[Rfam]
RNA sequence: UUAAGUAGCCUCUAGGGUUCCGGCUUAAGCAAUGCAGCUGAAGUGACUGGUCCAAGGGAGGCAAGCUUGCUAGAAAGUUUUUGAUGAGCUAGUCAGCAGCUACACGGCGGGACAAAAGCCCGGGAGGA
Numbered sequence: 001u002u003a004a005g006u007a008g009c010c011u012c013u014a015g016g017g018u019u020c021c022g023g024c025u026u027a028a029g030c031a032a033u034g035c036a037g038c039u040g041a042a043g044u045g046a047c048u049g050g051u052c053c054a055a056g057g058g059a060g061g062c063a064a065g066c067u068u069g070c071u072a073g074a075a076a077g078u079u080u081u082u083g084a085u086g087a088g089c090u091a092g093u094c095a096g097c098a099g100c101u102a103c104a105c106g107g108c109g110g111g112a113c114a115a116a117a118g119c120c121c122g123g124g125a126g127g128a
Stems, first nucleotide, its partner, number of pairs: 008062005015053002020050002022047001023044004028039003064101004069097003103123001105126001109121003

Shown here is a 128-nucleotide RNA from Leptolyngbya sp. FACHB-36, a member of the family "Guanidine-I riboswitch aptamer". NCBI's taxonomy places the organism under Bacteria, Cyanobacteriota, Cyanophyceae, Leptolyngbyaceae, Leptolyngbya.